[Rfam]
RNA sequence: GCGGUUGUGGUGAAGUGGUUAACACAGCGGAUUGUGGCUCCGUCACUCGCGCGUUCGAAUCGCGUCAGCCGCC
Numbered sequence: 001g002c003g004g005u006u007g008u009g010g011u012g013a014a015g016u017g018g019u020u021a022a023c024a025c026a027g028c029g030g031a032u033u034g035u036g037g038c039u040c041c042g043u044c045a046c047u048c049g050c051g052c053g054u055u056c057g058a059a060u061c062g063c064g065u066c067a068g069c070c071g072c073c
Stems, first nucleotide, its partner, number of pairs: 001072007010025003027043005049065005
A member of the RNA family "tRNA" from Faecalibaculum rodentium, 73 nucleotides long. The family's consensus secondary structure is taken from published work. Lineage of the source: Bacteria > Bacillati > Erysipelotrichia > Erysipelotrichaceae > Faecalibaculum. Rfam classes the family as a transfer RNA.